A member of the RNA family "SAM (S-adenosyl methionine) riboswitch aptamer" from Arthrobacter rhombi, 111 nucleotides long. The base pairs follow the family's consensus structure, which is taken from published work. A search with the family's covariance model found it, with a score of 69 bits.
[Rfam]
RNA sequence: CUUCAUGAGACGCGGGCAACAGCUCCGACUACCCGCGCACCAACCCCAGGUUCGUGGGUGGUUCGGAUGAGGAAGCGGCCCGCACGACAACGUGUUGGGUAAGAACGCACG
Numbered sequence: 001c002u003u004c005a006u007g008a009g010a011c012g013c014g015g016g017c018a019a020c021a022g023c024u025c026c027g028a029c030u031a032c033c034c035g036c037g038c039a040c041c042a043a044c045c046c047c048a049g050g051u052u053c054g055u056g057g058g059u060g061g062u063u064c065g066g067a068u069g070a071g072g073a074a075g076c077g078g079c080c081c082g083c084a085c086g087a088c089a090a091c092g093u094g095u096u097g098g099g100u101a102a103g104a105a106c107g108c109a110c111g
Stems, first nucleotide, its partner, number of pairs: 001075004009038001011037006021030002039062003044058003078100004082095005